[Rfam]
RNA: MIR2619 microRNA precursor family
Organism: Medicago truncatula
RNA sequence: AAACCGCCCUUAAGUAUUGACUUUUUUGCAGUUUUGGCCCCCUAGAUCAAUUUUGACAAAGUCAAUGCACACAUGGACGCCACCUGUGUAUUUAUUUUUUAAUAAUUAAAAAAAAAUACACACGUGGCGUCGACGUCAGCUUUGACUUGGUCAAAAUUGGCAUGGGGCCAAAACUGCAAAAAAGUCAAUACUUAGGGGGCAGUUU
Numbered sequence: 001a002a003a004c005c006g007c008c009c010u011u012a013a014g015u016a017u018u019g020a021c022u023u024u025u026u027u028g029c030a031g032u033u034u035u036g037g038c039c040c041c042c043u044a045g046a047u048c049a050a051u052u053u054u055g056a057c058a059a060a061g062u063c064a065a066u067g068c069a070c071a072c073a074u075g076g077a078c079g080c081c082a083c084c085u086g087u088g089u090a091u092u093u094a095u096u097u098u099u100u101a102a103u104a105a106u107u108a109a110a111a112a113a114a115a116a117u118a119c120a121c122a123c124g125u126g127g128c129g130u131c132g133a134c135g136u137c138a139g140c141u142u143u144g145a146c147u148u149g150g151u152c153a154a155a156a157u158u159g160g161c162a163u164g165g166g167g168c169c170a171a172a173a174c175u176g177c178a179a180a181a182a183a184g185u186c187a188a189u190a191c192u193u194a195g196g197g198g199g200c201a202g203u204u205u
Stems, first nucleotide, its partner, number of pairs: 001205002004202001006200003011194031044163001071136002074133001076131008